This 84-nucleotide RNA from Gorilla gorilla belongs to the Rfam family "mir-548 microRNA precursor family". It scores 95 bits against the family's covariance model. Gene Ontology terms of the family: RISC complex and miRNA-mediated post-transcriptional gene silencing. Rfam 15.1 lists 3,009 matches to the family in 27 species. On this family, see Witten et al., BMC Biol 2010: "Ultra-high throughput sequencing-based small RNA discovery and discrete statistical biomarker analysis in a collection of cervical tumours and matched controls".
[Rfam]
Nucleotides: 084
Base pairs, nucleotide, nucleotide: 001084002083003082004081005080006079007078008077009076010075011074012073013072014071015070016069017068018067019066020065021064022063023062024061025060026059028057029056030055031054032053033052034051035050036049037048038047039046040045
Number, partner (000 for none) and nucleotide at each position: 001084u002083a003082u004081u005080a006079g007078g008077u009076u010075g011074g012073u013072g014071c015070a016069c017068a018067a019066g020065u021064a022063a023062u024061u025060g026059c027000u028057g029056u030055u031054u032053u033052u034051g035050c036049u037048a038047u039046u040045a041000a042000a043000a044000u045040u046039a047038a048037u049036g050035g051034c052033a053032a054031a055030a056029g057028c058000u059026g060025c061024a062023a063022u064021u065020a066019c067018u068017u069016g070015u071014g072013u073012a074011c075010c076009a077008a078007c079006c080005u081004a082003a083002u084001a